[Rfam]
RNA sequence: UGCCAUGAUGUCGUAAUUUGCGCCUUACCCUGUGCCCAGGGACAGUUGCCUGCUGUCAGAGUCCUGGCAUAGGUGGUUGACGACCCAUUUAUGCUGAGCA
Numbered sequence: 001u002g003c004c005a006u007g008a009u010g011u012c013g014u015a016a017u018u019u020g021c022g023c024c025u026u027a028c029c030c031u032g033u034g035c036c037c038a039g040g041g042a043c044a045g046u047u048g049c050c051u052g053c054u055g056u057c058a059g060a061g062u063c064c065u066g067g068c069a070u071a072g073g074u075g076g077u078u079g080a081c082g083a084c085c086c087a088u089u090u091a092u093g094c095u096g097a098g099c100a
Stems, first nucleotide, its partner, number of pairs: 001100003021082002024079001030072005039064002041057005
RNA: Small nucleolar RNA SNORD16
Organism: Certhia brachydactyla